[Rfam]
RNA sequence: GGCUUUUCGGGCGAUGGCGUCCGCCCGGGCUUCGAGCCGAACCGCCCGUUUUGGGCUGAUGACGCCUGUUCUCUG
Dot-bracket structure: .........[[[[..((((((]]]]..................((((.....))))....)))))).........
RNA: Fluoride riboswitch aptamer (crcB RNA motif)